[Rfam]
A member of the RNA family "Burkholderia sRNA 25" from Trinickia symbiotica, 88 nucleotides long. Rfam links the family to the GO term bacterial biofilm matrix.
RNA sequence: UCUGCUCUAGCGAGCGGACUUUUUCGCGAACCGAAAAAGAGGUCUCCAAACCUUUGUCUGCGCGGCUCUUUGGCCGCGCUUUUUUUGG
Numbered sequence: 001u002c003u004g005c006u007c008u009a010g011c012g013a014g015c016g017g018a019c020u021u022u023u024u025c026g027c028g029a030a031c032c033g034a035a036a037a038a039g040a041g042g043u044c045u046c047c048a049a050a051c052c053u054u055u056g057u058c059u060g061c062g063c064g065g066c067u068c069u070u071u072g073g074c075c076g077c078g079c080u081u082u083u084u085u086u087g088g
Stems, first nucleotide, its partner, number of pairs: 001018007019039008060079008
Source information: Pairs were carried over by alignment from the consensus structure, which was predicted with RNAfold. A search with the family's covariance model found it, with a score of 68 bits. Identified by RNA-seq, RACE and Northern blot. Strongly expressed in biofilm. For this family Rfam cites "Identification of small RNAs abundant in Burkholderia cenocepacia biofilms reveal putative regulators with a potential role in carbon and iron metabolism" (Sass et al., Sci Rep, 2017).